[Rfam]
RNA sequence: CGUUUGGAGCCAGACUGGCUUGUCUGUAAUCAAUCUAGGCUUCGGCCUGGAUGCACUUGCAGGCUAUGCCUGCCAACGACAAUUUGACUUGAGGGAAAAAACUAAGGGAAAUGUGGCCCACUUGUGGGUGUUAUAGUCCCUUAGAAAAUACCUUGGGUUGGAUUGAGGAACGCAGCGAAUGCUUUUUGGCGAGUUUUCCAGGAAGGUUUUCUGAGGUACUACGGUAUCAAGGUUGAUCUUUUUGGUUAUACUUCUAUUCGCUUAGGUUGUUGGCUUAAUGACUCUAAAUGACCCGUCUUGAAACACGG
Numbered sequence: 001c002g003u004u005u006g007g008a009g010c011c012a013g014a015c016u017g018g019c020u021u022g023u024c025u026g027u028a029a030u031c032a033a034u035c036u037a038g039g040c041u042u043c044g045g046c047c048u049g050g051a052u053g054c055a056c057u058u059g060c061a062g063g064c065u066a067u068g069c070c071u072g073c074c075a076a077c078g079a080c081a082a083u084u085u086g087a088c089u090u091g092a093g094g095g096a097a098a099a100a101a102c103u104a105a106g107g108g109a110a111a112u113g114u115g116g117c118c119c120a121c122u123u124g125u126g127g128g129u130g131u132u133a134u135a136g137u138c139c140c141u142u143a144g145a146a147a148a149u150a151c152c153u154u155g156g157g158u159u160g161g162a163u164u165g166a167g168g169a170a171c172g173c174a175g176c177g178a179a180u181g182c183u184u185u186u187u188g189g190c191g192a193g194u195u196u197u198c199c200a201g202g203a204a205g206g207u208u209u210u211c212u213g214a215g216g217u218a219c220u221a222c223g224g225u226a227u228c229a230a231g232g233u234u235g236a237u238c239u240u241u242u243u244g245g246u247u248a249u250a251c252u253u254c255u256a257u258u259c260g261c262u263u264a265g266g267u268u269g270u271u272g273g274c275u276u277a278a279u280g281a282c283u284c285u286a287a288a289u290g291a292c293c294c295g296u297c298u299u300g301a302a303a304c305a306c307g308g
Stems, first nucleotide, its partner, number of pairs: 001290009011280002017070003021066002074272007293308004
A member of the RNA family "Eukaryotic large subunit ribosomal RNA" from Rhizopus delemar, 308 nucleotides of a longer RNA. Pairs were carried over by alignment from the consensus structure, which is taken from published work. Gene Ontology terms of the family: ribosome and structural constituent of ribosome. For this family Rfam cites "Crystal structure of the ribosome at 5.5 A resolution" (Yusupov et al., Science, 2001). The organism belongs to Rhizopus delemar, within Eukaryota.